[Rfam]
RNA sequence: CAAUAGAGUGGCGUCGUGCCUCAGGAAACUUGGGGCCCCACCAUUGA
Numbered sequence: 001c002a003a004u005a006g007a008g009u010g011g012c013g014u015c016g017u018g019c020c021u022c023a024g025g026a027a028a029c030u031u032g033g034g035g036c037c038c039c040a041c042c043a044u045u046g047a
Stems, first nucleotide, its partner, number of pairs: 006042001010039002018036008
About this RNA: Hepatitis C virus stem-loop I: a 47-nucleotide sequence. A reference for the family is Romero-Lopez and Berzal-Herranz (2020), "The Role of the RNA-RNA Interactome in the Hepatitis C Virus Life Cycle", Int J Mol Sci. It is one of the family's seed sequences. The family's RNA type in Rfam is cis-regulatory element.